[Rfam]
Nucleotides: 173
Base pairs, nucleotide, nucleotide: 001173002172003171004170005169006168007167010070011069012068013067017063018062019061020060021059022058023057024056025055026054027053028052029051031048033046034045035044036043037042075132076131077130078129079128080127081126082125085122086121087120088119092115093114094112095111096110097109098108099107100106101105135166136165137164138163139162140161141160146156147155148154149153
Number, partner (000 for none) and nucleotide at each position: 001173u002172g003171a004170u005169a006168c007167c008000a009000g010070g011069g012068u013067c014000a015000a016000a017063a018062g019061g020060u021059u022058g023057g024056a025055a026054a027053u028052c029051u030000g031048a032000u033046g034045c035044a036043a037042g038000c039000u040000u041000g042037c043036u044035u045034g046033c047000a048031u049000g050000a051029a052028g053027a054026u055025u056024u057023u058022u059021a060020a061019u062018c063017u064000u065000g066000g067013g068012a069011c070010c071000c072000g073000c074000c075132a076131a077130a078129a079128a080127c081126a082125u083000g084000a085122g086121u087120a088119a089000g090000a091000a092115g093114c094112c095111a096110u097109u098108u099107u100106u101105c102000g103000c104000a105101g106100a107099a108098a109097a110096a111095u112094g113000a114093g115092c116000g117000g118000a119088u120087u121086g122085c123000g124000a125082a126081u127080g128079u129078u130077u131076u132075u133000g134000a135166g136165g137164a138163u139162u140161g141160u142000g143000a144000g145000a146156g147155c148154a149153c150000g151000c152000a153149g154148u155147g156146c157000g158000g159000a160141g161140c162139a163138a164137u165136c166135c167007g168006g169005u170004a171003u172002c173001a